[Rfam]
RNA sequence: UAUGGGAUUUGCCUUAAUGUGACCUGAAUCACUUCAAAGAGUGUUAAACUCUCAGUAUCAUCAUACGAGUUAAACCCUCGCCGCCUGACGGUGAGGGUUUUCUUUUGGG
Numbered sequence: 001u002a003u004g005g006g007a008u009u010u011g012c013c014u015u016a017a018u019g020u021g022a023c024c025u026g027a028a029u030c031a032c033u034u035c036a037a038a039g040a041g042u043g044u045u046a047a048a049c050u051c052u053c054a055g056u057a058u059c060a061u062c063a064u065a066c067g068a069g070u071u072a073a074a075c076c077c078u079c080g081c082c083g084c085c086u087g088a089c090g091g092u093g094a095g096g097g098u099u100u101u102c103u104u105u106u107g108g109g
Base pairs, nucleotide, nucleotide: 016034017033019032020031021030022029072100073099074098075097076096077095078094079093080092081091082090083089
The family of this 109-nucleotide RNA from Escherichia fergusonii is "Enterobacteria rnk leader". The organism belongs to Escherichia fergusonii, within Bacteria. Rfam links the family to the GO term regulation of gene expression.